[Rfam]
FMN riboswitch aptamer (RFN element): a 113-nucleotide sequence from Anaerorhabdus furcosa.
Its family is annotated with FMN binding in the Gene Ontology.
RNA sequence: AAACGUCUUCAGGGUAGGGUGAAAUUCCCAAUCGGCGGUAAACCCCGCGAGCAUAUGCAGGAACUGGUGUAAUUCCAGUGGCGACAGUAAAGUCUGGAUGAAAGAAGAUGUGU
Numbered sequence: 001a002a003a004c005g006u007c008u009u010c011a012g013g014g015u016a017g018g019g020u021g022a023a024a025u026u027c028c029c030a031a032u033c034g035g036c037g038g039u040a041a042a043c044c045c046c047g048c049g050a051g052c053a054u055a056u057g058c059a060g061g062a063a064c065u066g067g068u069g070u071a072a073u074u075c076c077a078g079u080g081g082c083g084a085c086a087g088u089a090a091a092g093u094c095u096g097g098a099u100g101a102a103a104g105a106a107g108a109u110g111u112g113u
Stems, first nucleotide, its partner, number of pairs: 003111008017029003031093002033083002035048004043081002063079005085096003
About this RNA: The RFN element is a highly conserved domain that is found frequently in the 5'-untranslated regions of prokaryotic mRNAs that encode for flavin mononucleotide (FMN) biosynthesis and transport proteins.